Shown here is a 70-nucleotide RNA sequence from Anhinga anhinga, a member of the family "tRNA". Gene Ontology term of the family: triplet codon-amino acid adaptor activity. The organism belongs to Anhinga, within Eukaryota. The family's RNA type in Rfam is transfer RNA. Transfer RNA (tRNA) molecules are approximately 80 nucleotides in length. It scores 48 bits against the family's covariance model.
RNA sequence: CAGAGAACAGUUUAGUGUAAAAUAGCAGCUUUGGGAGCUGGAGAUGAAGGUUUGAGCCCUUUUUCUCUGA
Numbered sequence: 001c002a003g004a005g006a007a008c009a010g011u012u013u014a015g016u017g018u019a020a021a022a023u024a025g026c027a028g029c030u031u032u033g034g035g036a037g038c039u040g041g042a043g044a045u046g047a048a049g050g051u052u053u054g055a056g057c058c059c060u061u062u063u064u065c066u067c068u069g070a
Stems, first nucleotide, its partner, number of pairs: 001069007010023004026040004046062005